A member of the RNA family "Mammalian CPEB3 ribozyme" from Crocodylus porosus, 77 nucleotides long. A search with the family's covariance model found it, with a score of 39 bits. The organism belongs to Crocodylus, within Eukaryota.
[Rfam]
RNA sequence: GUUGCAAGUUCAAGGCCAUAGAAGAAGUGAUCACAAAAACACCCCUAUCAGAUUCUAAUGAAUCUGCUAAUUCUGCU
Numbered sequence: 001g002u003u004g005c006a007a008g009u010u011c012a013a014g015g016c017c018a019u020a021g022a023a024g025a026a027g028u029g030a031u032c033a034c035a036a037a038a039a040c041a042c043c044c045c046u047a048u049c050a051g052a053u054u055c056u057a058a059u060g061a062a063u064c065u066g067c068u069a070a071u072u073c074u075g076c077u
Stems, first nucleotide, its partner, number of pairs: 014044002020077002023074004027042003049066007